[Rfam]
RNA sequence: GUGAGUUUCGUAGAGUUUAAAGCAACUCAGCUGGCUCGCCAAUACACAUACGCGAAAGCUCUACCCAAACUCACUACGA
Dot-bracket structure: ((((((((.(((((((((.....................................)))))))))..)))))))).....
Description: A member of the RNA family "mir-1017 microRNA precursor family" from Drosophila albomicans, 79 nucleotides long. The base pairs follow the family's consensus structure. Gene Ontology terms of the family: RISC complex and miRNA-mediated post-transcriptional gene silencing.